Small nucleolar RNA snoR8a: a 92-nucleotide RNA from Capsicum baccatum. By type it is a C/D-box small nucleolar RNA. The match comes from Rfam's covariance-model search (88 bits). The organism belongs to Capsicum, within Eukaryota. The literature on the family includes a 2001 paper in RNA by Brown et al., "Multiple snoRNA gene clusters from Arabidopsis".
RNA sequence: UGGGUUUGCGAUGAUUAUAAAAUAAUUCCUCGUACUGAAAUGCUGUUGCCACAGCAUGAUAGACUCUUUUACACCCAUAGAAUAUGAGCACC
Numbered sequence: 001u002g003g004g005u006u007u008g009c010g011a012u013g014a015u016u017a018u019a020a021a022a023u024a025a026u027u028c029c030u031c032g033u034a035c036u037g038a039a040a041u042g043c044u045g046u047u048g049c050c051a052c053a054g055c056a057u058g059a060u061a062g063a064c065u066c067u068u069u070u071a072c073a074c075c076c077a078u079a080g081a082a083u084a085u086g087a088g089c090a091c092c
Base pairs, nucleotide, nucleotide: 003092004091007090008089